A member of the RNA family "tRNA" from Halosaccharopolyspora lacisalsi, 73 nucleotides long. The base pairs follow the family's consensus structure, which is taken from published work. The family's RNA type in Rfam is transfer RNA. Transfer RNA (tRNA) molecules are approximately 80 nucleotides in length.

[Rfam]
RNA sequence: GCUCCCGUCGUCUAGUGGCCUAGGACGCCGGCCUCUCACGCCGGUAACGUGGGUUCGAAUCCCAUCGGGAGUA
Numbered sequence: 001g002c003u004c005c006c007g008u009c010g011u012c013u014a015g016u017g018g019c020c021u022a023g024g025a026c027g028c029c030g031g032c033c034u035c036u037c038a039c040g041c042c043g044g045u046a047a048c049g050u051g052g053g054u055u056c057g058a059a060u061c062c063c064a065u066c067g068g069g070a071g072u073a
Base pairs, nucleotide, nucleotide: 001072002071003070004069005068006067007066010026011025012024013023028044029043030042031041032040049065050064051063052062053061